Shown here is a 173-nucleotide sequence from Lysinibacillus odysseyi, a member of the family "Lysine riboswitch aptamer".
Nucleotides: 173
Base pairs, nucleotide, nucleotide: 007167008166009165010164011163017083018082019081020080021079022078023077024076025075033068034067035066036065037064038063039062087116088115089114090113091112092111093110094109095108096107097106098105117144118143121140122139123138124137126135127134146157147156148155149154
Number, partner (000 for none) and nucleotide at each position: 001000a002000a003000a004000u005000g006000a007167g008166g009165u010164a011163g012000a013000g014000g015000u016000c017083g018082c019081a020080a021079c022078c023077a024076u025075u026000a027000u028000g029000a030000c031000u032000a033068g034067u035066a036065u037064a038063g039062c040000g041000g042000a043000g044000a045000u046000a047000g048000g049000g050000a051000g052000a053000a054000u055000c056000u057000g058000u059000g060000a061000a062039g063038c064037u065036a066035u067034a068033u069000a070000a071000a072000a073000g074000g075025a076024a077023u078022g079021g080020u081019u082018g083017c084000c085000g086000a087116a088115g089114u090113a091112u092111a093110g094109u095108a096107c097106u098105u099000c100000u101000c102000u103000u104000c105098a106097a107096g108095u109094g110093c111092u112091a113090u114089g115088c116087u117144g118143g119000g120000g121140c122139u123138g124137u125000a126135c127134u128000c129000g130000a131000a132000u133000a134127g135126g136000g137124a138123c139122a140121g141000a142000a143118c144117u145000g146157c147156c148155g149154c150000u151000g152000c153000g154149g155148c156147g157146g158000g159000u160000g161000a162000g163011c164010u165009a166008u167007c168000g169000u170000u171000u172000c173000a

Source information:
Pairs were carried over by alignment from the consensus structure, which is taken from published work. The source organism's lineage runs through Bacteria, Bacillota, Caryophanales, Bacillaceae and Lysinibacillus odysseyi.